[Rfam]
RNA sequence: GGUAGUAGCAAAUACUUUGGAGAGGCCCCGAAGGACCGAUGUGGAGAAGGGUUUCGUGUGAACAGCCGUUGAACACGAGUCAGUCGAUCCUAAACCCGACGAGAAGUCGGUAUCACUGUAAGGGAGUUUAAUGUACAUGGAUCCCUACUUUGAUAAGGUGAAAGGGAAUCUGGUUUCAAUUCCAGAACCUGGUGACGGAACCGCUCUUUUCAAUAUAUUCCUUGUGGGUAUAUUGUCGAGGUAACUCAAAAAGACCCGGAGAAGCCGUUAGAACCCUCAGGAAGAGUUUUCUUUUCUGCAUGAGCAAUUGAGCGCCCUGGAAUUCCUUCAAGGAGAGAUAGGGUCAAGAUUGCGAAGAGCGUCGCAGUUAUUGUGACGUCUGAGGUGUUUUACCGGACCUUGAAAAUCUGGGAGAGGGAAACGGGAGCGUCGCACCAGUUCGUACCCAUAUCCGCAGCAGGUCUCCGAGGUGAGCAGCCUCUGGUCGA
Dot-bracket structure: ..............((((((.......))))))((((.....((((..((...((((((...((.....)).))))))......(((.((...((....(((....))).........(((((........................))))).....))....))...(((((........)))))..((((..............................(((((((........(((....))).......((((((....(((.(((((.(.(((.(.(((.........))).)....(((((......(((((...((((.....))))...))))).....)))))......(((((((.....)))))))..)))...)))))).)))..........))))))..............)).))))))))).)))..)).....((......)).)))).((((.....))))..))))..
RNA: Eukaryotic large subunit ribosomal RNA, nucleotides 1727 to 2214